RNA sequence: CUGGUUCCGGUUCACGACCUCCCGCACCGGGAGGCCGACCCGGCGACC
Numbered sequence: 001c002u003g004g005u006u007c008c009g010g011u012u013c014a015c016g017a018c019c020u021c022c023c024g025c026a027c028c029g030g031g032a033g034g035c036c037g038a039c040c041c042g043g044c045g046a047c048c
Base pairs, nucleotide, nucleotide: 003048004047005046007043008042009041010040015037016036018034019033020032021031022030023029
RNA: L31-Actinobacteria ribosomal protein leader